[Rfam]
RNA sequence: UCCGCGGCGACGCGGAAUCUGAAGGAAGCCGGCGGCAAACCUCUGGCCCGAGGAACACGAACCUCAAGUGAGGCUAGCGACAGGUGGAUGAGUCUGCAUAGUGAGACAAAGUCCUUGCUGCCAAAGUCUGUCGAGAGUAAAUGAGGCGGGUAGAUGGAGGGAAAGAUAGCGCU
Numbered sequence: 001u002c003c004g005c006g007g008c009g010a011c012g013c014g015g016a017a018u019c020u021g022a023a024g025g026a027a028g029c030c031g032g033c034g035g036c037a038a039a040c041c042u043c044u045g046g047c048c049c050g051a052g053g054a055a056c057a058c059g060a061a062c063c064u065c066a067a068g069u070g071a072g073g074c075u076a077g078c079g080a081c082a083g084g085u086g087g088a089u090g091a092g093u094c095u096g097c098a099u100a101g102u103g104a105g106a107c108a109a110a111g112u113c114c115u116u117g118c119u120g121c122c123a124a125a126g127u128c129u130g131u132c133g134a135g136a137g138u139a140a141a142u143g144a145g146g147c148g149g150g151u152a153g154a155u156g157g158a159g160g161g162a163a164a165g166a167u168a169g170c171g172c173u
Stems, first nucleotide, its partner, number of pairs: 001016006028173001030171002036165001040160006046151005062146005073138003078133006086114004092107004
Dot-bracket structure: ((((((....))))))...........(.((....(...(((((((((((...........(((((......(((..((((((..((((..((((........))))...)))).............))))))..)))...))))))))))...))))))....)....)).)